c-di-GMP-I riboswitch aptamer: a 97-nucleotide sequence from Alicyclobacillus tolerans. Taxonomically the source falls in Alicyclobacillus (Bacteria, Bacillati, Bacillota, Alicyclobacillaceae). Rfam's curators write: GEMM was predicted in a large-scale screen for bacterial structured RNA regulatory elements.
[Rfam]
RNA sequence: GUUCCUUGAGGGCAAACCUGUUGAAAGACAGGGACGCAAAACUGCGGGUCCUGGAUGGAAAAAUAUAAAAUUAAGCCAGGAUGGCUGAGUUGCAAGG
Numbered sequence: 001g002u003u004c005c006u007u008g009a010g011g012g013c014a015a016a017c018c019u020g021u022u023g024a025a026a027g028a029c030a031g032g033g034a035c036g037c038a039a040a041a042c043u044g045c046g047g048g049u050c051c052u053g054g055a056u057g058g059a060a061a062a063a064u065a066u067a068a069a070a071u072u073a074a075g076c077c078a079g080g081a082u083g084g085c086u087g088a089g090u091u092g093c094a095a096g097g
Stems, first nucleotide, its partner, number of pairs: 012037002017032006040091004045087003048082007